Description
The record is a 79-nucleotide RNA from Actinocrispum wychmicini, which matches "SAH (S-adenosyl-L-homocysteine) riboswitch aptamer" in Rfam. Rfam 15.1 lists 1,354 matches to the family in 1,132 species.
[Rfam]
RNA sequence: UGGGCCGAGAGGCGCUGCGACGGGACGGGUUCCCGCCACGCUCGGCCCGGACACCGACACGCAAGGGCGCCUCCUGUCA
Numbered sequence: 001u002g003g004g005c006c007g008a009g010a011g012g013c014g015c016u017g018c019g020a021c022g023g024g025a026c027g028g029g030u031u032c033c034c035g036c037c038a039c040g041c042u043c044g045g046c047c048c049g050g051a052c053a054c055c056g057a058c059a060c061g062c063a064a065g066g067g068c069g070c071c072u073c074c075u076g077u078c079a
Base pairs, nucleotide, nucleotide: 002048003047004046005045006044007043008042021035022034023033024032025031